[Rfam]
RNA sequence: GAAACAAAUGGGAAUGAAUGUCUCCCCGGGAUCAUCCCGAACCGCUUAUUAAGCUGAUGACUUCUGUGAUAAC
Numbered sequence: 001g002a003a004a005c006a007a008a009u010g011g012g013a014a015u016g017a018a019u020g021u022c023u024c025c026c027c028g029g030g031a032u033c034a035u036c037c038c039g040a041a042c043c044g045c046u047u048a049u050u051a052a053g054c055u056g057a058u059g060a061c062u063u064c065u066g067u068g069a070u071a072a073c
Stems, first nucleotide, its partner, number of pairs: 010026004016064003020061003044054003

Rfam assigns this 73-nucleotide RNA to the family "Fluoride riboswitch aptamer (crcB RNA motif)".
The family's consensus secondary structure is taken from published work.